[Rfam]
The family of this 179-nucleotide RNA sequence from Fumia xinanensis is "Lysine riboswitch aptamer". The base pairs follow the family's consensus structure, which is taken from published work. Gene Ontology term of the family: lysine biosynthetic process.

RNA sequence: CGGAAGGUCAGAGGUCGCGGUUAUCAUGAGUCGGCACGGGGAGGUUACCCAAACCAUCGAAACGUGCCAAAAGGGGUCGCCGCCGAAGGGGAGAGCGAGGGGAAAGCUGUCCGCCUGAGCCUGUGUUUAAGAGACGCAGGAUUGUCGUCAUAGAGAUAUGAUGGAGCGCUGCCGGAAUU
Dot-bracket structure: ......(.(((.....(((((.(((.......((((((........................))))))......))).)))))...((((((.(((.........))).))).)))((.((((((((.....)))))))).)).(((((((......)))))))....))).)......